About this RNA:
Archaeal RNase P: a 303-nucleotide RNA sequence from Thermogymnomonas acidicola. The family is grouped with related families in Rfam's "RNaseP clan". The family's RNA type in Rfam is ribozyme. Its family is annotated with tRNA processing, ribonuclease P activity and multimeric ribonuclease P complex in the Gene Ontology. A reference for the family is Frank and Pace (1998), "Ribonuclease P: unity and diversity in a tRNA processing ribozyme", Annu Rev Biochem. The organism belongs to Thermogymnomonas, within Archaea.

RNA sequence: GAAAGCCCGAGGGCGACUGACGCCCGGAACGGGUGAGGAAAGUCCUCCCUCCACGGCGGGGCCCAACCGGCGCAAGCCGGUACCCCGAGAGGGGUGGUGAAGGUAAAAGAAACGACACGGCUCCCGGUAAUAGUGUGACGCCCUCAAGGCUGACGUUCCCGGGGUGGACGAUGGAAGCACCUGCCUGGGUGGAGAAAGUCUGAACAGGCCCUGUGAGGCCGCCGCGAGGGCCGGGUAAGACGAAGCGAGUCGAAUGUCGCCAACCCGAAAGGGUGAACAGAAGGAGGCUUACUCCGGGCAUUC
Dot-bracket structure: (((.(((((((((((((...(((((.....)))))....[[[.[[[[[((((.[[[[[..((((((((((......)))))(((((....)))))((...((((.............((..((((((............((.......))........))))))....))........)))).)))))))))))...((((.....(((((........]]]]]...))))).....))))..............)))))).....................]]]]]]]].)).))))).)))